RNA sequence: GCACCUGUAGCUCAGUUGGAUAGAGCAACGGACUUCUAAUCCGUGUGUCGGGGGUUCGAAUCCUCCCAGGUGCA
Dot-bracket structure: (((((((..((((.........)))).(((((.......))))).....(((((.......)))))))))))).
Annotation:
The family of this 74-nucleotide RNA from Thermohalobacter berrensis is "tRNA". About the family: Transfer RNA (tRNA) molecules are approximately 80 nucleotides in length. Their secondary structure includes four short double-helical elements and three loops (D, anti-codon, and T loops). Rfam 15.1 lists 5,335,975 matches to the family in 14,413 species. It scores 72 bits against the family's covariance model. The source organism's lineage runs through Bacteria, Bacillota, Tissierellia, Thermohalobacteraceae and Thermohalobacter.